[Rfam]
RNA: radC RNA
Organism: Pseudoxanthomonas spadix
RNA sequence: AGGCUCCCUGCAUGUUUGCUGGCGCUGCCGGCAGCAUCCCAGGCAGUCGAGACCUUCAAGACUGCAACGCGGUUCGCCGCGUCGGUCGUUCCUCAUCCCCGGGCGCAUGUCGCGUCCAUCACCCACAAGGGACUUUCCUCCCUUGCGGGCGG
Numbered sequence: 001a002g003g004c005u006c007c008c009u010g011c012a013u014g015u016u017u018g019c020u021g022g023c024g025c026u027g028c029c030g031g032c033a034g035c036a037u038c039c040c041a042g043g044c045a046g047u048c049g050a051g052a053c054c055u056u057c058a059a060g061a062c063u064g065c066a067a068c069g070c071g072g073u074u075c076g077c078c079g080c081g082u083c084g085g086u087c088g089u090u091c092c093u094c095a096u097c098c099c100c101g102g103g104c105g106c107a108u109g110u111c112g113c114g115u116c117c118a119u120c121a122c123c124c125a126c127a128a129g130g131g132a133c134u135u136u137c138c139u140c141c142c143u144u145g146c147g148g149g150c151g152g
Base pairs, nucleotide, nucleotide: 012037013036014035015033018032019031020030021029022028023027043065044064045063046062047061048060051087052086053085054084067082068081069080070079071078072077126145127144128143129142130141131140132139